[Rfam]
RNA: MIR397 microRNA precursor family
Organism: Manihot esculenta
RNA sequence: UUGAGAAACAUCAUUUGAGUGCAGCGUUGAUGAAUUUCCUACAAUUUUCUAAGAUUUUAAUUUUGUUGAAGGAUUUUACCAGCGCCGCACUUAAUCAUGUUUUUC
Numbered sequence: 001u002u003g004a005g006a007a008a009c010a011u012c013a014u015u016u017g018a019g020u021g022c023a024g025c026g027u028u029g030a031u032g033a034a035u036u037u038c039c040u041a042c043a044a045u046u047u048u049c050u051a052a053g054a055u056u057u058u059a060a061u062u063u064u065g066u067u068g069a070a071g072g073a074u075u076u077u078a079c080c081a082g083c084g085c086c087g088c089a090c091u092u093a094a095u096c097a098u099g100u101u102u103u104u105c
Stems, first nucleotide, its partner, number of pairs: 006102006013095002016093007024085006031078003